[Rfam]
Nucleotides: 103
Base pairs, nucleotide, nucleotide: 001103002102003101004100005099006098
Number, partner (000 for none) and nucleotide at each position: 001103g002102a003101a004100g005099g006098c007000a008000g009000u010000g011000a012000c013000g014000a015000c016000u017000a018000g019000g020000a021000a022000a023000u024000a025000u026000u027000c028000a029000a030000g031000c032000u033000c034000a035000a036000c037000a038000g039000a040000c041000c042000g043000g044000a045000a046000u047000u048000a049000g050000g051000c052000g053000u054000u055000u056000c057000u058000u059000u060000c061000g062000a063000g064000a065000c066000u067000c068000g069000u070000u071000u072000c073000u074000g075000u076000g077000u078000c079000g080000a081000u082000a083000a084000u085000c086000c087000c088000g089000c090000u091000g092000a093000a094000c095000u096000g097000a098006g099005c100004c101003u102002u103001c

About this RNA
Rfam assigns this 103-nucleotide sequence from Brassica rapa to the family "Small nucleolar RNA Z107/R87". NCBI's taxonomy places the organism under Eukaryota, Viridiplantae, Streptophyta, Brassicaceae, Brassica. The literature on the family includes a 2001 paper in J Mol Biol by Barneche et al., "Identification of 66 box C/D snoRNAs in Arabidopsis thaliana: extensive gene duplications generated multiple isoforms predicting new ribosomal RNA 2'-O-methylation sites". The family's RNA type in Rfam is C/D-box small nucleolar RNA. It scores 95 bits against the family's covariance model.